The family of this 99-nucleotide RNA sequence from Virgisporangium aliadipatigenens is "Glycine riboswitch aptamer". A search with the family's covariance model found it, with a score of 59 bits. On this family, see Mandal et al., Science 2004: "A glycine-dependent riboswitch that uses cooperative binding to control gene expression".
[Rfam]
RNA sequence: GCACCCCACGUGGGAGAGACCGCCGGGUUGGCACCCCGGUGGCGCCGAAGGGGCAAUUCCUCCCCGGAACCUCUCAGGCAAACGGACCACGGCGGGGCU
Numbered sequence: 001g002c003a004c005c006c007c008a009c010g011u012g013g014g015a016g017a018g019a020c021c022g023c024c025g026g027g028u029u030g031g032c033a034c035c036c037c038g039g040u041g042g043c044g045c046c047g048a049a050g051g052g053g054c055a056a057u058u059c060c061u062c063c064c065c066g067g068a069a070c071c072u073c074u075c076a077g078g079c080a081a082a083c084g085g086a087c088c089a090c091g092g093c094g095g096g097g098c099u
Base pairs, nucleotide, nucleotide: 006094009091010090011089012088013087020042021041022040023039024038025037026036027035044079045078046077047075048074051073052072053071057067058066